[Rfam]
RNA sequence: CACUUAUCAAGAGUGGCGGAGGGACUGGCCCAAAGAUGCCCGGCAACCAAUACAUUGUGUAUAAGGUGCCAAAUCCAGCAGCUGAAGAAGCUGAGAGAUGAGGA
Numbered sequence: 001c002a003c004u005u006a007u008c009a010a011g012a013g014u015g016g017c018g019g020a021g022g023g024a025c026u027g028g029c030c031c032a033a034a035g036a037u038g039c040c041c042g043g044c045a046a047c048c049a050a051u052a053c054a055u056u057g058u059g060u061a062u063a064a065g066g067u068g069c070c071a072a073a074u075c076c077a078g079c080a081g082c083u084g085a086a087g088a089a090g091c092u093g094a095g096a097g098a099u100g101a102g103g104a
Base pairs, nucleotide, nucleotide: 003102004101005100006099007098008097013041015040016039017038021031022030023029025078026077027076028075042070043069044068045067047066048065050062051061052060074096079093080092081091082090083089

Rfam assigns this 104-nucleotide sequence from Clostridium cellulovorans to the family "SAM riboswitch aptamer (S box leader)".